A member of the RNA family "Selenocysteine transfer RNA" from Comamonas antarctica, 92 nucleotides long. The source organism's lineage runs through Bacteria, Betaproteobacteria, Burkholderiales, Comamonadaceae and Comamonas.
RNA sequence: GGAAGGCAUGCACACCCGGUGGUGUGGCCGGGCUUCAAACCCGGUGAGGGGCGUCAGCCGCUCCUGGGUAGGUUCGACUCCUGCUGCUUUCC
Numbered sequence: 001g002g003a004a005g006g007c008a009u010g011c012a013c014a015c016c017c018g019g020u021g022g023u024g025u026g027g028c029c030g031g032g033c034u035u036c037a038a039a040c041c042c043g044g045u046g047a048g049g050g051g052c053g054u055c056a057g058c059c060g061c062u063c064c065u066g067g068g069u070a071g072g073u074u075c076g077a078c079u080c081c082u083g084c085u086g087c088u089u090u091c092c
Stems, first nucleotide, its partner, number of pairs: 001092008011026006027045006047065005069083004